[Rfam]
RNA sequence: AUUUUCAGUGGCAGUAUCGUAGCCAAUGAGGUUUAUCCGAGGCGCGAUUAUUGCUAAUUGGAAUUAAUGAGCUUAUUUUAAAAACAGGAUACUUUAAAAUAGGAAAUUUGUUUCCAUUGUUCGUACGU
Numbered sequence: 001a002u003u004u005u006c007a008g009u010g011g012c013a014g015u016a017u018c019g020u021a022g023c024c025a026a027u028g029a030g031g032u033u034u035a036u037c038c039g040a041g042g043c044g045c046g047a048u049u050a051u052u053g054c055u056a057a058u059u060g061g062a063a064u065u066a067a068u069g070a071g072c073u074u075a076u077u078u079u080a081a082a083a084a085c086a087g088g089a090u091a092c093u094u095u096a097a098a099a100u101a102g103g104a105a106a107u108u109u110g111u112u113u114c115c116a117u118u119g120u121u122c123g124u125a126c127g128u
Base pairs, nucleotide, nucleotide: 016048017047018046019045020044022043023042024041030038031037073104074103075100076099077098078097079096080095081094082093118127119126120125